[Rfam]
RNA sequence: GGUAGUAGGUCUACCGCAUACGCCGGGCAGACGGAGUAUGCAAACCACUGCAUGCUGCUACAAUCAAAAGUUGUGGUGGUGAGCGAUGCAGCAAAAGGCUGUGUUUAGCAUUGACGCUUUGG
Number, nucleotide and partner (000 for none) at each position: 001g015002g014003u013004a012005g011006u000007a000008g000009g000010u000011c005012u004013a003014c002015c001016g041017c040018a039019u038020a037021c036022g000023c034024c033025g032026g000027g000028c000029a000030g000031a000032c025033g024034g023035a000036g021037u020038a019039u018040g017041c016042a000043a000044a000045c000046c122047a000048c091049u090050g089051c088052a087053u086054g080055c079056u000057g077058c076059u075060a000061c073062a072063a071064u070065c000066a000067a000068a000069a000070g064071u063072u062073g061074u000075g059076g058077u057078g000079g055080u054081g000082a000083g000084c000085g000086a053087u052088g051089c050090a049091g048092c000093a000094a000095a000096a119097g118098g117099c116100u000101g000102u000103g000104u000105u000106u000107a000108g000109c000110a000111u000112u000113g000114a000115c000116g099117c098118u097119u096120u000121g000122g046
Rfam assigns this 122-nucleotide sequence from Flavisolibacter tropicus to the family "Group II catalytic intron D1-D4-2".
Group II introns are found in rRNA, tRNA and mRNA of organelles in fungi, plants and protists, and also in mRNA in bacteria.
The literature on the family includes a 2001 paper in Trends Genet by Bonen and Vogel, "The ins and outs of group II introns".